[Rfam]
RNA sequence: AGCAGGCAUGCGCCGGGUAAACUCUUGGUCGUCCGAUGGACGGCAGUCCCUAAUGGGACGGGAUCCUAGAGCCGGGGGCCUGCUUAUUU
Numbered sequence: 001a002g003c004a005g006g007c008a009u010g011c012g013c014c015g016g017g018u019a020a021a022c023u024c025u026u027g028g029u030c031g032u033c034c035g036a037u038g039g040a041c042g043g044c045a046g047u048c049c050c051u052a053a054u055g056g057g058a059c060g061g062g063a064u065c066c067u068a069g070a071g072c073c074g075g076g077g078g079c080c081u082g083c084u085u086a087u088u089u
Base pairs, nucleotide, nucleotide: 001084002083003082004081005080006079007078011076013075014074015073016072022071023070024069025068027066028044029043030042031041032040033039034038047058048057049056
DUF3800-VII RNA: an 89-nucleotide RNA. Rfam classes the family as a small RNA.